[Rfam]
RNA sequence: UUUUAAAGUGCAUAUUCUACUCAUAUAUCCCCUGAAUAUGGCAGGGAGUAUCUACCGGGAUCCGUAAAUUCCCGACUAUGAGUGAUUUAGGUUUGUCG
Numbered sequence: 001u002u003u004u005a006a007a008g009u010g011c012a013u014a015u016u017c018u019a020c021u022c023a024u025a026u027a028u029c030c031c032c033u034g035a036a037u038a039u040g041g042c043a044g045g046g047a048g049u050a051u052c053u054a055c056c057g058g059g060a061u062c063c064g065u066a067a068a069u070u071c072c073c074g075a076c077u078a079u080g081a082g083u084g085a086u087u088u089a090g091g092u093u094u095g096u097c098g
Stems, first nucleotide, its partner, number of pairs: 018084008030046005056074005

Annotation
Rfam assigns this 98-nucleotide RNA sequence from Clostridium liquoris to the family "Purine riboswitch aptamer". The match comes from Rfam's covariance-model search (73 bits). The family has 133 seed sequences and 4,097 matches in Rfam 15.1. Pairs were carried over by alignment from the consensus structure, which is taken from published work.